[Rfam]
Shown here is a 96-nucleotide RNA from Macaca mulatta, a member of the family "mir-636 microRNA precursor family".

RNA sequence: UGGCGGCCUGGGCGGGAGCGCGCGGGCGGGGCCGGCCCCGCUGCCUGGAAUUAACCCCGCUGUGCUUGCUCGUCCCGCCUGCAGCCCUAGGCGGCG
Numbered sequence: 001u002g003g004c005g006g007c008c009u010g011g012g013c014g015g016g017a018g019c020g021c022g023c024g025g026g027c028g029g030g031g032c033c034g035g036c037c038c039c040g041c042u043g044c045c046u047g048g049a050a051u052u053a054a055c056c057c058c059g060c061u062g063u064g065c066u067u068g069c070u071c072g073u074c075c076c077g078c079c080u081g082c083a084g085c086c087c088u089a090g091g092c093g094g095c096g
Stems, first nucleotide, its partner, number of pairs: 003095002006092007018085002022082011034070003039064003043060002047056002

Gene Ontology terms of the family: RISC complex and miRNA-mediated post-transcriptional gene silencing.